[Rfam]
RNA sequence: ACACAGUGUAUUCCUGGGUAAAUAACAUGUAAUAUGCGAAAUGUGUUAUUGCUUGAGAAUACACGUCGU
Numbered sequence: 001a002c003a004c005a006g007u008g009u010a011u012u013c014c015u016g017g018g019u020a021a022a023u024a025a026c027a028u029g030u031a032a033u034a035u036g037c038g039a040a041a042u043g044u045g046u047u048a049u050u051g052c053u054u055g056a057g058a059a060u061a062c063a064c065g066u067c068g069u
Stems, first nucleotide, its partner, number of pairs: 008062006017053003021050007
RNA: mir-234 microRNA precursor family